[Rfam]
RNA sequence: GUCGGGUACGGGGACAUGUAUCCGCAGUCGCUUGGCGGGAAAGUAGUCGGGGGUUUGUGUGCGCUUUCUGGCGUCCUCACUGUUUCCUUGGUCAUGCCCGUCUUCGUGACUAAC
Numbered sequence: 001g002u003c004g005g006g007u008a009c010g011g012g013g014a015c016a017u018g019u020a021u022c023c024g025c026a027g028u029c030g031c032u033u034g035g036c037g038g039g040a041a042a043g044u045a046g047u048c049g050g051g052g053g054u055u056u057g058u059g060u061g062c063g064c065u066u067u068c069u070g071g072c073g074u075c076c077u078c079a080c081u082g083u084u085u086c087c088u089u090g091g092u093c094a095u096g097c098c099c100g101u102c103u104u105c106g107u108g109a110c111u112a113a114c
Base pairs, nucleotide, nucleotide: 001114002113004111005110007108008107009106010105011104013102014101015100018097019096020095021094037077038076039075040074050062
Rfam assigns this 114-nucleotide sequence from Branchiostoma floridae to the family "Potassium channel RNA editing signal". This family represents a group of sequences related to the human potassium channel Kv1.1 hairpin element which directs the efficient modification of an adenosine to inosine by an adenosine deaminase acting on RNA (ADAR). The ADAR modification causes an isoleucine/valine recoding event which lies in the ion-conducting pore of the potassium channel. It is thought that this editing event targets the process of fast inactivation and allows a more rapid recovery from inactivation at negative potentials. The match comes from Rfam's covariance-model search (69 bits).